Annotation
A member of the RNA family "Z30 small nucleolar RNA" from Merluccius polli, 98 nucleotides long. Rfam links the family to the GO terms nucleolus and RNA processing. A search with the family's covariance model found it, with a score of 61 bits. The family's consensus secondary structure was predicted with PFOLD.

RNA sequence: CUGCGGUGAUGAGGUGGAGGGACCUGGUACCUGGUACUGCUGGUCCAUAGGGGUCGGGUCUGACCAGGACUUGACCUCUUAAUCCUCUCUCUGAGCAG
Numbered sequence: 001c002u003g004c005g006g007u008g009a010u011g012a013g014g015u016g017g018a019g020g021g022a023c024c025u026g027g028u029a030c031c032u033g034g035u036a037c038u039g040c041u042g043g044u045c046c047a048u049a050g051g052g053g054u055c056g057g058g059u060c061u062g063a064c065c066a067g068g069a070c071u072u073g074a075c076c077u078c079u080u081a082a083u084c085c086u087c088u089c090u091c092u093g094a095g096c097a098g
Base pairs, nucleotide, nucleotide: 003096004095040057041056042055